[Rfam]
RNA sequence: GUUGCUCUCAAGACUUAUUUUUGAAAAGGAGAGACAGAAAAUGG
Numbered sequence: 001g002u003u004g005c006u007c008u009c010a011a012g013a014c015u016u017a018u019u020u021u022u023g024a025a026a027a028g029g030a031g032a033g034a035c036a037g038a039a040a041a042u043g044g
Base pairs, nucleotide, nucleotide: 002037003036004035005033006032007031008030009029015024016023017022
RNA: Streptococcus sRNA SpR10